[Rfam]
U1 spliceosomal RNA: a 161-nucleotide sequence from Rhynchospora breviuscula. On this family, see Zwieb, Nucleic Acids Res 1997: "The uRNA database". By type it is a spliceosomal small nuclear RNA. U1 is a small nuclear RNA (snRNA) component of the spliceosome (involved in pre-mRNA splicing). Its 5' end forms complementary base pairs with the 5' splice junction, thus defining the 5' donor site of an intron.
RNA sequence: GUACUUACCUGGACGGGGUCAAUGGGCGAUCAAGAAGGCUCAUGGCCUAAGUCAGGGGCCUCCAUUGCACGUUGGGAGGAGCGCUGGCUUACCAUCUGCCCAAGUGGCGGAGUGGACGUCAUAAUUUGUGGUCGAGGGGGUACGCGUUCGCGCGGCCCCUG
Dot-bracket structure: ...........((((((((((.(((((..........)))))))))))(((((..(..(((((..........)).)))..)...))))).((((((.((.....)).))).))).))))...............(((((..((((....)))).))))).